[Rfam]
The family of this 118-nucleotide sequence from Desulfofarcimen acetoxidans is "Group II catalytic intron D1-D4-2". Rfam links the family to the GO term Group II intron splicing. Rfam describes the family as follows. Group II introns are found in rRNA, tRNA and mRNA of organelles in fungi, plants and protists, and also in mRNA in bacteria.

RNA sequence: GAGGGAAGGCCCCUCGGAGCCGCUAUGCAGGUAGAGGCUCCAAACCACCGUAAGCUGCUGUGGUCAAAAGCCAUGGUGGUGAGCGUUACGGAAAAGGCGAAGCAUGACUUUGUCAGGU
Numbered sequence: 001g002a003g004g005g006a007a008g009g010c011c012c013c014u015c016g017g018a019g020c021c022g023c024u025a026u027g028c029a030g031g032u033a034g035a036g037g038c039u040c041c042a043a044a045c046c047a048c049c050g051u052a053a054g055c056u057g058c059u060g061u062g063g064u065c066a067a068a069a070g071c072c073a074u075g076g077u078g079g080u081g082a083g084c085g086u087u088a089c090g091g092a093a094a095a096g097g098c099g100a101a102g103c104a105u106g107a108c109u110u111u112g113u114c115a116g117g118u
Base pairs, nucleotide, nucleotide: 001015002014003013004012005011016041017040018039019038020037021036023034024033025032026031046117048091049090050089051088052087053086054080055079057077058076059075061073062072063071064070096114097113098112099111100110101109